[Rfam]
RNA sequence: CCCACAUCCAUGUGUAUAGGACCCUAAAGGAUCACCACUAAAUUUGGCACAUAUCUUUAGAAAAGUUAUCACAUGGGUGUGAGACUUGACUUUUCUAGAUAUUUGUGCCAAAUUUAAUGGUGCUCCUUUGGGGUCCUACACACAUAGGUGUGGG
Numbered sequence: 001c002c003c004a005c006a007u008c009c010a011u012g013u014g015u016a017u018a019g020g021a022c023c024c025u026a027a028a029g030g031a032u033c034a035c036c037a038c039u040a041a042a043u044u045u046g047g048c049a050c051a052u053a054u055c056u057u058u059a060g061a062a063a064a065g066u067u068a069u070c071a072c073a074u075g076g077g078u079g080u081g082a083g084a085c086u087u088g089a090c091u092u093u094u095c096u097a098g099a100u101a102u103u104u105g106u107g108c109c110a111a112a113u114u115u116a117a118u119g120g121u122g123c124u125c126c127u128u129u130g131g132g133g134u135c136c137u138a139c140a141c142a143c144a145u146a147g148g149u150g151u152g153g154g
Base pairs, nucleotide, nucleotide: 002153003152004151005150006149007148008147010145011144012143013142015140017138018137019136020135021134022133023132024131025130026129027128028127030125031124034121035120036119037118039116040115041114042113043112044111045110046109047108048107049106050105051104053102054101056099057098058097059096060095061094062093063092064091065090066089067088068087069082070081071080072079073078